A member of the RNA family "Manganese Mn2+ riboswitch aptamer (yybP-ykoY)" from Aquimonas voraii, 105 nucleotides long. The family has 29 seed sequences and 1,126 matches in Rfam 15.1. The organism belongs to Aquimonas, within Bacteria.
RNA sequence: CAUCGGGGAGUAGUCGCGCGCCCAAGUUCCUCGCGGAACCGGCGCGACCGCGCGUCAACACACUGGGCCGGCCGGCCCUGGCGCGUGGAGUCGGUGGCCGGAAUC
Numbered sequence: 001c002a003u004c005g006g007g008g009a010g011u012a013g014u015c016g017c018g019c020g021c022c023c024a025a026g027u028u029c030c031u032c033g034c035g036g037a038a039c040c041g042g043c044g045c046g047a048c049c050g051c052g053c054g055u056c057a058a059c060a061c062a063c064u065g066g067g068c069c070g071g072c073c074g075g076c077c078c079u080g081g082c083g084c085g086u087g088g089a090g091u092c093g094g095u096g097g098c099c100g101g102a103a104u105c
Stems, first nucleotide, its partner, number of pairs: 017046006048088010065078005